[Rfam]
RNA sequence: GUGAGGCGCGCCUAGGGUUCCGCCGCCCGUUCGCGCGGGCGGGGCUGGACCGAGAGACGCAGGCGCGCGCGUCGCGAUGCCGCGCCGCGCGCGCUCCACGGCGGGACAAAAGCCCGGGAGAC
Numbered sequence: 001g002u003g004a005g006g007c008g009c010g011c012c013u014a015g016g017g018u019u020c021c022g023c024c025g026c027c028c029g030u031u032c033g034c035g036c037g038g039g040c041g042g043g044g045c046u047g048g049a050c051c052g053a054g055a056g057a058c059g060c061a062g063g064c065g066c067g068c069g070c071g072u073c074g075c076g077a078u079g080c081c082g083c084g085c086c087g088c089g090c091g092c093g094c095u096c097c098a099c100g101g102c103g104g105g106a107c108a109a110a111a112g113c114c115c116g117g118g119a120g121a122c
Base pairs, nucleotide, nucleotide: 008060009059010058012056015051016050020048021047022045023042024041025040026039027038028037062095063094064093065092066091067090068089069088070087071086097117099120103115104114105113

About this RNA
The record is a 122-nucleotide sequence from Phytohabitans suffuscus, which matches "Guanidine-I riboswitch aptamer" in Rfam. The source organism's lineage runs through Bacteria, Bacillati, Actinomycetota, Actinomycetes and Phytohabitans. A search with the family's covariance model found it, with a score of 65 bits. On this family, see Reiss et al., Structure 2017: "Structural Basis for Ligand Binding to the Guanidine-I Riboswitch". The family has 100 seed sequences and 1,509 matches in Rfam 15.1.